[Rfam]
RNA sequence: AGUUGUGUCAUGCCCCCUGACUAUGAUAACUCUGUAGGCAUUACUUCGAACAAGCGAAAGAAUUGAACAACACAUGAAAGCCCUUCUACAAGUGAUUAGCCUGGUCGUGAUUAGCGUGGUGGUGGUUAUUAACCUACCGUGCGGGGCAACGCUUGGAGAAAGAAAGGCUUAAAAAUCAAGCCUCGAAUCCGAAAAAACCCCCGCACCGAAAGGUCCGGGGGUUUUUUUUCGACCAGAGGAAAUAUCAGUAAAUCCACAAGGAACAAACAAUGAACAGUAGCAUAAAAUUCUGUUGUUCCGGUCAGGA
Numbered sequence: 001a002g003u004u005g006u007g008u009c010a011u012g013c014c015c016c017c018u019g020a021c022u023a024u025g026a027u028a029a030c031u032c033u034g035u036a037g038g039c040a041u042u043a044c045u046u047c048g049a050a051c052a053a054g055c056g057a058a059a060g061a062a063u064u065g066a067a068c069a070a071c072a073c074a075u076g077a078a079a080g081c082c083c084u085u086c087u088a089c090a091a092g093u094g095a096u097u098a099g100c101c102u103g104g105u106c107g108u109g110a111u112u113a114g115c116g117u118g119g120u121g122g123u124g125g126u127u128a129u130u131a132a133c134c135u136a137c138c139g140u141g142c143g144g145g146g147c148a149a150c151g152c153u154u155g156g157a158g159a160a161a162g163a164a165a166g167g168c169u170u171a172a173a174a175a176u177c178a179a180g181c182c183u184c185g186a187a188u189c190c191g192a193a194a195a196a197a198c199c200c201c202c203g204c205a206c207c208g209a210a211a212g213g214u215c216c217g218g219g220g221g222u223u224u225u226u227u228u229u230c231g232a233c234c235a236g237a238g239g240a241a242a243u244a245u246c247a248g249u250a251a252a253u254c255c256a257c258a259a260g261g262a263a264c265a266a267a268c269a270a271u272g273a274a275c276a277g278u279a280g281c282a283u284a285a286a287a288u289u290c291u292g293u294u295g296u297u298c299c300g301g302u303c304a305g306g307a
Stems, first nucleotide, its partner, number of pairs: 005030001006028006012021001014019001034071002037068001042062001044060002047054001082261003087256001091249001094246003100239003103230002106116003118138005124133001126131001140157001142155004161188001166184001167182001169180002192227012205214003262294004267289001270283003
Soft rot Enterobacteriaceae Rev 39 5'UTR: a 307-nucleotide sequence from Pantoea agglomerans.
The family's consensus secondary structure was predicted with RNAfold.
The organism belongs to Pantoea, within Bacteria.
Rfam describes the family as follows. From bacteria cultured under starvation conditions.